[Rfam]
The record is a 134-nucleotide RNA sequence from Catagonus wagneri, which matches "Small nucleolar RNA SNORA41" in Rfam. About the family: ACA41 is a member of the H/ACA class of snoRNA that guide the sites of modification of uridines to pseudouridines. The literature on the family includes a 2001 paper in EMBO J by Huttenhofer et al., "RNomics: an experimental approach that identifies 201 candidates for novel, small, non-messenger RNAs in mouse". The match comes from Rfam's covariance-model search (137 bits). The base pairs follow the family's consensus structure, which was predicted with PFOLD. By type it is an H/ACA-box small nucleolar RNA.

RNA sequence: UUCCACAGCUACUGGUCUGCAGCUGUUCUUAGGUAGCAACUGCAGCAUUCCUCUGUGGGAAAAAAAAGAUGUUACACAAAUAAACACCACUUUCUUAGCCAAACAGAAAGUGGGCAUGUGUGUGACAAACACAA
Numbered sequence: 001u002u003c004c005a006c007a008g009c010u011a012c013u014g015g016u017c018u019g020c021a022g023c024u025g026u027u028c029u030u031a032g033g034u035a036g037c038a039a040c041u042g043c044a045g046c047a048u049u050c051c052u053c054u055g056u057g058g059g060a061a062a063a064a065a066a067a068g069a070u071g072u073u074a075c076a077c078a079a080a081u082a083a084a085c086a087c088c089a090c091u092u093u094c095u096u097a098g099c100c101a102a103a104c105a106g107a108a109a110g111u112g113g114g115c116a117u118g119u120g121u122g123u124g125a126c127a128a129a130c131a132c133a134a
Stems, first nucleotide, its partner, number of pairs: 003058004017045006024038002074123005087114002090110006